[Rfam]
RNA sequence: GGGGAGAGUGAAGGAUCCUGGGCUGUGUCUCCCAGCGCCCUGGGAUCCGGGGCCUGUGCUGCUGGAACCAUGCUCCCAGGGCCGUGGCUCCCA
Numbered sequence: 001g002g003g004g005a006g007a008g009u010g011a012a013g014g015a016u017c018c019u020g021g022g023c024u025g026u027g028u029c030u031c032c033c034a035g036c037g038c039c040c041u042g043g044g045a046u047c048c049g050g051g052g053c054c055u056g057u058g059c060u061g062c063u064g065g066a067a068c069c070a071u072g073c074u075c076c077c078a079g080g081g082c083c084g085u086g087g088c089u090c091c092c093a
Stems, first nucleotide, its partner, number of pairs: 002092005013083002017080002020076003024072004028066002032064001033061006042054001044053001046051001
RNA: mir-8799 microRNA precursor family
Organism: Nyctereutes procyonoides